[Rfam]
RNA: Potassium channel RNA editing signal
Organism: Cyprinodon variegatus
RNA sequence: CUCGGCUAUGGCGAUAUGUACCCUCAGACGACCUUUGGUAUGCUGGUGGGAGCUCUGUGUGCCCUGGCAGGCGUGCUGACCAUCGCCAUGCCCGUACCCGUAAUUGUCAACAAU
Numbered sequence: 001c002u003c004g005g006c007u008a009u010g011g012c013g014a015u016a017u018g019u020a021c022c023c024u025c026a027g028a029c030g031a032c033c034u035u036u037g038g039u040a041u042g043c044u045g046g047u048g049g050g051a052g053c054u055c056u057g058u059g060u061g062c063c064c065u066g067g068c069a070g071g072c073g074u075g076c077u078g079a080c081c082a083u084c085g086c087c088a089u090g091c092c093c094g095u096a097c098c099c100g101u102a103a104u105u106g107u108c109a110a111c112a113a114u
Base pairs, nucleotide, nucleotide: 002113004111008107009106010105011104014101015100018097019096020095021094037077038076039075040074049063050062